A member of the RNA family "c-di-AMP riboswitch aptamer (ydaO/yuaA leader)" from Microcystis aeruginosa, 130 nucleotides long. The organism belongs to Microcystis aeruginosa, within Bacteria.
RNA sequence: GAUAUUAGCUAGACAAAUUCGGAGCGGAGGAACCAUAUUUGGGGCGUAUUUCUAGAUUUUUUAGCCUAGAAAAGGAUAUCUCUCUAUCCUAGCCCGUCAGCUAACUUCGUCGGCGUGGGGGGGAAGACUG
Numbered sequence: 001g002a003u004a005u006u007a008g009c010u011a012g013a014c015a016a017a018u019u020c021g022g023a024g025c026g027g028a029g030g031a032a033c034c035a036u037a038u039u040u041g042g043g044g045c046g047u048a049u050u051u052c053u054a055g056a057u058u059u060u061u062u063a064g065c066c067u068a069g070a071a072a073a074g075g076a077u078a079u080c081u082c083u084c085u086a087u088c089c090u091a092g093c094c095c096g097u098c099a100g101c102u103a104a105c106u107u108c109g110u111c112g113g114c115g116u117g118g119g120g121g122g123g124a125a126g127a128c129u130g
Stems, first nucleotide, its partner, number of pairs: 005022002024110006034041002042095003050071006074089004
Dot-bracket structure: ....((..............)).((((((....((....))(((.....((((((..........))))))..((((........))))...))).........))))))....................